[Rfam]
RNA: Small nucleolar RNA U109
RNA sequence: UUGCAUGUGGAAAUGUCUGCUCCUCAUUCCUUUGGAAGCAGGAAUACAUCCAUAACACGCUACAUUAAAAAAGGAGUUCUCAGGGCUCCAGCAUAACAUGCUACAUUAAAAAAGGAGUUCUCAGGGCUGCCAGCCUUACAGUAGAAGUUGAGUAGUAGUGUAUUUCUCCUACAUUU
Numbered sequence: 001u002u003g004c005a006u007g008u009g010g011a012a013a014u015g016u017c018u019g020c021u022c023c024u025c026a027u028u029c030c031u032u033u034g035g036a037a038g039c040a041g042g043a044a045u046a047c048a049u050c051c052a053u054a055a056c057a058c059g060c061u062a063c064a065u066u067a068a069a070a071a072a073g074g075a076g077u078u079c080u081c082a083g084g085g086c087u088c089c090a091g092c093a094u095a096a097c098a099u100g101c102u103a104c105a106u107u108a109a110a111a112a113a114g115g116a117g118u119u120c121u122c123a124g125g126g127c128u129g130c131c132a133g134c135c136u137u138a139c140a141g142u143a144g145a146a147g148u149u150g151a152g153u154a155g156u157a158g159u160g161u162a163u164u165u166c167u168c169c170u171a172c173a174u175u176u
Stems, first nucleotide, its partner, number of pairs: 003060002006057003016042006023035001073169004085156002088152001089150004094145001